[Rfam]
RNA: c-di-GMP-I-GGC riboswitch aptamer
RNA sequence: AAAGACAAAGGCAAACUUGGUGAAAGCCAAGGACGCAAAGCCACGGGUCUUUCUAUUUGAGGAAGAUAGCCGGGUUGCAUCAU
Dot-bracket structure: (.(.......((...((((((....))))))..[))..((((.((((((((...........))))).])))))))...)..)